[Rfam]
Rfam assigns this 128-nucleotide RNA sequence from Lipotes vexillifer to the family "Small nucleolar RNA SNORA24". By type it is an H/ACA-box small nucleolar RNA. From the family's description: ACA24 is a member of the H/ACA class of snoRNA that guide the sites of modification of uridines to pseudouridines.

RNA sequence: CUCCAUGUAUCUUUGGGACCUGUCAGCUGUGGAAGUCUCCCUUCCUAGCCAUGGAAGAGCACAUUCUUGUUUAUUGGCAAAGCUGUCACUAUUUAACUGGUAUCAGAUUCUGAUACCAGAAUACAUUC
Number, nucleotide and partner (000 for none) at each position: 001c000002u055003c054004c053005a052006u051007g050008u000009a000010u000011c000012u000013u000014u000015g041016g040017g039018a038019c000020c035021u034022g000023u032024c031025a000026g000027c000028u000029g000030u000031g024032g023033a000034a021035g020036u000037c000038u018039c017040c016041c015042u000043u000044c000045c000046u000047a000048g000049c000050c007051a006052u005053g004054g003055a002056a000057g000058a000059g000060c000061a000062c000063a000064u000065u000066c000067u000068u125069g124070u123071u000072u000073a000074u119075u118076g117077g116078c000079a000080a000081a000082g000083c106084u105085g104086u000087c000088a101089c100090u099091a098092u000093u000094u000095a000096a000097c000098u091099g090100g089101u088102a000103u000104c085105a084106g083107a000108u000109u000110c000111u000112g000113a000114u000115a000116c077117c076118a075119g074120a000121a000122u000123a070124c069125a068126u000127u000128c000
Lineage of the source: Eukaryota > Metazoa > Eumetazoa > Bilateria > Lipotes. The base pairs follow the family's consensus structure, which was predicted with RNAfold. It scores 119 bits against the family's covariance model.